[Rfam]
Plant signal recognition particle RNA: a 308-nucleotide sequence from Carnegiea gigantea. Rfam 15.1 lists 4,988 matches to the family in 266 species. The literature on the family includes a 2002 paper in Curr Opin Struct Biol by Wild et al., "Towards the structure of the mammalian signal recognition particle".
RNA sequence: GCCGGGCUCAGUCAAGUGAGCUUGUGACCCAAGUGGGGGCAUUCAGGUGGUGGAACAUGAACUCGGACAACUCGGUCAGAUUUGUGAUGGCCGAAUGCCUGGCUUGUCCUAUCCAAGUUGGGAGCUUGACCCUAGUGACGUAGGUGUAGGCCUGAGUUGAUUGGGUCCUAAAGUGGCAGAGACUGCGUGAGGCUGGUUUCACAGAGUAACGAACACUGCCCGCUCUUGUCAGUGGAAAGAUACCGAGUCGAUGCCAUCCAAAUCCAAUGGUGCCUGAUUGGUUGUCCUCCUGUUGAACCAUUACCUUU
Number, nucleotide and partner (000 for none) at each position: 001g040002c039003c038004g023005g022006g021007c020008u019009c018010a017011g000012u000013c000014a000015a000016g000017u010018g009019a008020g007021c006022u005023u004024g000025u000026g000027a000028c037029c036030c035031a000032a000033g000034u000035g030036g029037g028038g003039g002040c001041a000042u000043u000044c000045a306046g305047g304048u303049g302050g301051u300052g299053g298054a000055a000056c295057a294058u292059g291060a000061a000062c000063u000064c284065g283066g282067a000068c281069a000070a279071c000072u277073c276074g275075g274076u000077c272078a000079g264080a263081u262082u261083u260084g259085u000086g000087a000088u256089g255090g254091c000092c253093g252094a000095a000096u000097g000098c000099c000100u250101g249102g248103c247104u246105u245106g244107u000108c239109c000110u000111a000112u236113c235114c234115a233116a000117g230118u000119u228120g227121g226122g225123a224124g223125c222126u000127u000128g167129a166130c165131c164132c163133u000134a161135g000136u159137g158138a157139c156140g000141u154142a153143g152144g151145u150146g000147u000148a000149g000150g145151c144152c143153u142154g141155a000156g139157u138158u137159g136160a000161u134162u000163g132164g131165g130166u129167c128168c173169u000170a000171a000172a000173g168174u000175g220176g219177c218178a217179g216180a000181g000182a000183c000184u213185g000186c211187g210188u209189g000190a000191g000192g000193c204194u203195g202196g000197u000198u000199u000200c000201a000202c195203a194204g193205a000206g000207u000208a000209a188210c187211g186212a000213a184214c000215a000216c179217u178218g177219c176220c175221c000222g125223c124224u123225c122226u121227u120228g119229u000230c117231a000232g000233u115234g114235g113236a112237a000238a000239g108240a000241u000242a000243c000244c106245g105246a104247g103248u102249c101250g100251a000252u093253g092254c090255c089256a088257u000258c000259c084260a083261a082262a081263u080264c079265c000266a000267a000268u000269g000270g000271u000272g077273c000274c075275u074276g073277a072278u000279u070280g000281g068282u066283u065284g064285u000286c000287c000288u000289c000290c000291u059292g058293u000294u057295g056296a000297a000298c053299c052300a051301u050302u049303a048304c047305c046306u045307u000308u000